The record is a 41-nucleotide RNA from Caldibacillus debilis, which matches "Ribosomal protein L19 leader" in Rfam.
By type it is a cis-regulatory leader.
About the family: This family is a putative r-protein leader autoregulatory structure found in B. subtilis and other low-GC Gram-positive bacteria.
The match comes from Rfam's covariance-model search (46 bits).
The literature on the family includes a 1994 paper in Prog Nucleic Acid Res Mol Biol by Zengel and Lindahl, "Diverse mechanisms for regulating ribosomal protein synthesis in Escherichia coli".
Gene Ontology term of the family: regulation of gene expression.
The base pairs follow the family's consensus structure, which was predicted with CMfinder.

RNA sequence: ACGAUGUUCCGCUGCCGCUGUUUUUGCCGCAUGAACAUCUG
Numbered sequence: 001a002c003g004a005u006g007u008u009c010c011g012c013u014g015c016c017g018c019u020g021u022u023u024u025u026g027c028c029g030c031a032u033g034a035a036c037a038u039c040u041g
Stems, first nucleotide, its partner, number of pairs: 003039007013031003017027002